[Rfam]
RNA sequence: GUAUGGGUCACCGCAAGGUUUCUGGCAUGAAGGCCAGACCGUAUUCUGCGGUUCGCGCGUCGAACCGUAACCGGCAAGUCCGGAUUUAAACCGGCCGGUGCACUCACCGGA
Numbered sequence: 001g002u003a004u005g006g007g008u009c010a011c012c013g014c015a016a017g018g019u020u021u022c023u024g025g026c027a028u029g030a031a032g033g034c035c036a037g038a039c040c041g042u043a044u045u046c047u048g049c050g051g052u053u054c055g056c057g058c059g060u061c062g063a064a065c066c067g068u069a070a071c072c073g074g075c076a077a078g079u080c081c082g083g084a085u086u087u088a089a090a091c092c093g094g095c096c097g098g099u100g101c102a103c104u105c106a107c108c109g110g111a
Stems, first nucleotide, its partner, number of pairs: 010019003021038006047069009071083004095110005
A member of the RNA family "Pseudomon-groES RNA" from Pseudomonas savastanoi, 111 nucleotides long. NCBI's taxonomy places the organism under Bacteria, Pseudomonadati, Gammaproteobacteria, Pseudomonas savastanoi, Pseudomonas savastanoi pv. phaseolicola. The base pairs follow the family's consensus structure, which is taken from published work. It is annotated as a cis-regulatory element. It is one of the family's seed sequences.